The family of this 76-nucleotide sequence from Faecalibacterium duncaniae is "c-di-GMP-I riboswitch aptamer".
A search with the family's covariance model found it, with a score of 56 bits.
The family is grouped with related families in Rfam's "c-di-GMP_I riboswitch clan".
RNA sequence: GAAUAUCCUCGGCAAAGCAGUCGAAAGGCUGUGACGCAAAGCUAUAGGGCCUGUAAAAUGGCAGCCAGUUGCUUCU
Numbered sequence: 001g002a003a004u005a006u007c008c009u010c011g012g013c014a015a016a017g018c019a020g021u022c023g024a025a026a027g028g029c030u031g032u033g034a035c036g037c038a039a040a041g042c043u044a045u046a047g048g049g050c051c052u053g054u055a056a057a058a059u060g061g062c063a064g065c066c067a068g069u070u071g072c073u074u075c076u
Base pairs, nucleotide, nucleotide: 012037013036017032018031019030020029021028022027040070041069042068043067047066048065049062050061051060